Rfam assigns this 284-nucleotide sequence from Psilocybe cubensis to the family "Group I catalytic intron".
Rfam's curators write: Group I catalytic introns are large self-splicing ribozymes.
It scores 88 bits against the family's covariance model.
For this family Rfam cites "Self-splicing of group I introns" (Cech, Annu Rev Biochem, 1990).
The family has 12 seed sequences and 5,602 matches in Rfam 15.1.
[Rfam]
RNA sequence: UGUAAUUUCUGAUAUUGAUUAUGACAUCGGGGAUUUUUAAUAGUAAUAUUAAAUUAGAAGUUGGCUAUAUGCUGGAACACCCUAAAGCUUUAAGUACUUUCACCUAAAAGCGGUGAGUGAAAAUCUUAAAGAUUGGGCAAUCAGCAGGGAAGUUAGUAAUACUAGGUGUAAGCAACUGUAAUAUUUAUAACCCCUCAACGACUACACGCCAAUAUCCAGAAGCUUUGUAAUAUGUAUUCUUACACUGGAUAAAGAUAUAGUCUAAACUUAACUGAAAGGUUAAG
Numbered sequence: 001u002g003u004a005a006u007u008u009c010u011g012a013u014a015u016u017g018a019u020u021a022u023g024a025c026a027u028c029g030g031g032g033a034u035u036u037u038u039a040a041u042a043g044u045a046a047u048a049u050u051a052a053a054u055u056a057g058a059a060g061u062u063g064g065c066u067a068u069a070u071g072c073u074g075g076a077a078c079a080c081c082c083u084a085a086a087g088c089u090u091u092a093a094g095u096a097c098u099u100u101c102a103c104c105u106a107a108a109a110g111c112g113g114u115g116a117g118u119g120a121a122a123a124u125c126u127u128a129a130a131g132a133u134u135g136g137g138c139a140a141u142c143a144g145c146a147g148g149g150a151a152g153u154u155a156g157u158a159a160u161a162c163u164a165g166g167u168g169u170a171a172g173c174a175a176c177u178g179u180a181a182u183a184u185u186u187a188u189a190a191c192c193c194c195u196c197a198a199c200g201a202c203u204a205c206a207c208g209c210c211a212a213u214a215u216c217c218a219g220a221a222g223c224u225u226u227g228u229a230a231u232a233u234g235u236a237u238u239c240u241u242a243c244a245c246u247g248g249a250u251a252a253a254g255a256u257a258u259a260g261u262c263u264a265a266a267c268u269u270a271a272c273u274g275a276a277a278g279g280u281u282a283a284g
Base pairs, nucleotide, nucleotide: 004035005034006033007032008031009030010029011028012027013026040049041048042047060213061212062211063210064209065208070146071145072144073143074142075141080137081136082135084133147194148193154187155186198263200262201261202260203259204258215249216248217247218246219245269282270281271280272279273278